[Rfam]
RNA sequence: CGAGUGCAAAUGUCCAGUAAAGUUUAGCCAGCAGCUGAUACUAAGCCUUAAGUAAUGUAUGGUAACAUGAAGAGUAUGACUUAAGGUAUAAGUGAUGAUAAGCCGGAAGGUGUUGCAGUCCCGAAAUAACUAAUUUGGAAAGUUCGUGUUGUUGAAUCAGCAGAAGAUAGAAUAUUAUUAAUCGUGAUGGCAAAAGUAAUAAUGUUUCCUCAUGAUCAUAGGACU
Numbered sequence: 001c002g003a004g005u006g007c008a009a010a011u012g013u014c015c016a017g018u019a020a021a022g023u024u025u026a027g028c029c030a031g032c033a034g035c036u037g038a039u040a041c042u043a044a045g046c047c048u049u050a051a052g053u054a055a056u057g058u059a060u061g062g063u064a065a066c067a068u069g070a071a072g073a074g075u076a077u078g079a080c081u082u083a084a085g086g087u088a089u090a091a092g093u094g095a096u097g098a099u100a101a102g103c104c105g106g107a108a109g110g111u112g113u114u115g116c117a118g119u120c121c122c123g124a125a126a127u128a129a130c131u132a133a134u135u136u137g138g139a140a141a142g143u144u145c146g147u148g149u150u151g152u153u154g155a156a157u158c159a160g161c162a163g164a165a166g167a168u169a170g171a172a173u174a175u176u177a178u179u180a181a182u183c184g185u186g187a188u189g190g191c192a193a194a195a196g197u198a199a200u201a202a203u204g205u206u207u208c209c210u211c212a213u214g215a216u217c218a219u220a221g222g223a224c225u
Base pairs, nucleotide, nucleotide: 012039013038015037016036017035022032023031024030025193027191028190041092042091045087046086047085048084050081051077052075053074056071058069059068060067061066115219118216119215120214123211137209138208139207140206141205142168143167144166147162148161149160150159173204174203175202176201177200178199179198180197182195
Rfam assigns this 225-nucleotide RNA sequence from Thermoanaerobacterium sp. RBIITD to the family "Group II catalytic intron D1-D4-6". It scores 57 bits against the family's covariance model. NCBI's taxonomy places the organism under Bacteria, Bacillati, Clostridia, Thermoanaerobacterales, Thermoanaerobacterium. Rfam describes the family as follows. Group II introns are found in rRNA, tRNA and mRNA of organelles in fungi, plants and protists, and also in mRNA in bacteria. Pairs were carried over by alignment from the consensus structure.